Record summary:
The record is a 172-nucleotide RNA sequence from Cohnella lubricantis, which matches "Group II catalytic intron D1-D4-3" in Rfam. Rfam describes the family as follows. Group II introns are found in rRNA, tRNA and mRNA of organelles in fungi, plants and protists, and also in mRNA in bacteria. The match comes from Rfam's covariance-model search (113 bits). The organism belongs to Cohnella, within Bacteria. The pairing is the family consensus, mapped onto this sequence.
RNA sequence: UCCGUCGCGAGGUGGAAUCCGAAGGAUGCUUGAGGCAAACGUACGGCUUGAGGUACACGAAUCCAAUUUGAGGCGGUUGCAGUCGGAUGAGUCACCAAAACAUGACGAAAUCCAAAGCUGCCAAAGGCUGUAGCCGUAGACUUGGGCGAGCGCGGGCGGAAAGGUGACGUUC
Numbered sequence: 001u002c003c004g005u006c007g008c009g010a011g012g013u014g015g016a017a018u019c020c021g022a023a024g025g026a027u028g029c030u031u032g033a034g035g036c037a038a039a040c041g042u043a044c045g046g047c048u049u050g051a052g053g054u055a056c057a058c059g060a061a062u063c064c065a066a067u068u069u070g071a072g073g074c075g076g077u078u079g080c081a082g083u084c085g086g087a088u089g090a091g092u093c094a095c096c097a098a099a100a101c102a103u104g105a106c107g108a109a110a111u112c113c114a115a116a117g118c119u120g121c122c123a124a125a126g127g128c129u130g131u132a133g134c135c136g137u138a139g140a141c142u143u144g145g146g147c148g149a150g151c152g153c154g155g156g157c158g159g160a161a162a163g164g165u166g167a168c169g170u171u172c
Base pairs, nucleotide, nucleotide: 001016002015003014004013005012006011028172031169032168035165036163040158041157042156044154045153046151047150048149049148050147062146063145064144065143066142067140073137074136075135077133078132079131080130081129082128083127085113086112087111088110091106092105093104094103